[Rfam]
Rfam assigns this 69-nucleotide RNA from Flavobacterium fluvii to the family "DUF805 RNA".
NCBI's taxonomy places the organism under Bacteria, Bacteroidota, Flavobacteriia, Flavobacteriaceae, Flavobacterium.
Its Rfam clan is "DUF805 clan".
The family has 46 seed sequences and 281 matches in Rfam 15.1.
It is annotated as a cis-regulatory element.
RNA sequence: AUAAAGUGGAAACUAGUAACCACUAUAAAAAACAGGGUAGAACUGAAAAACCAUAAGAGUAGGCAAAAU
Dot-bracket structure: .....((((..........))))............(((....[[.....))).........]]......